Rfam assigns this 161-nucleotide sequence from Setaria italica to the family "MIR2118 microRNA precursor family". For this family Rfam cites "Clusters and superclusters of phased small RNAs in the developing inflorescence of rice" (Johnson et al., Genome Res, 2009).
[Rfam]
RNA sequence: AUAAGGGAAAAGGAAGAAAUGAGGGCCUAAGAGCAGUGGGCACGGGAACAUGGAGGAAAGCUCAACUGAUGGUUACCUCAUGAAGGUGGGAUCUGCUUCAAGAUUUCCUGAUGCCUCCCAUGCCUAUUGUUCUUUGGUGCUCCUUCCUUUUCCUUUUGAUU
Numbered sequence: 001a002u003a004a005g006g007g008a009a010a011a012g013g014a015a016g017a018a019a020u021g022a023g024g025g026c027c028u029a030a031g032a033g034c035a036g037u038g039g040g041c042a043c044g045g046g047a048a049c050a051u052g053g054a055g056g057a058a059a060g061c062u063c064a065a066c067u068g069a070u071g072g073u074u075a076c077c078u079c080a081u082g083a084a085g086g087u088g089g090g091a092u093c094u095g096c097u098u099c100a101a102g103a104u105u106u107c108c109u110g111a112u113g114c115c116u117c118c119c120a121u122g123c124c125u126a127u128u129g130u131u132c133u134u135u136g137g138u139g140c141u142c143c144u145u146c147c148u149u150u151u152c153c154u155u156u157u158g159a160u161u
Base pairs, nucleotide, nucleotide: 010151011150012149013148016145017144021142022141023140026137027136029134030133031132032131033130034129035128037126038125039124040123041122042121044119045118046117047116049113050112051111053109055108056107057106058105059104061102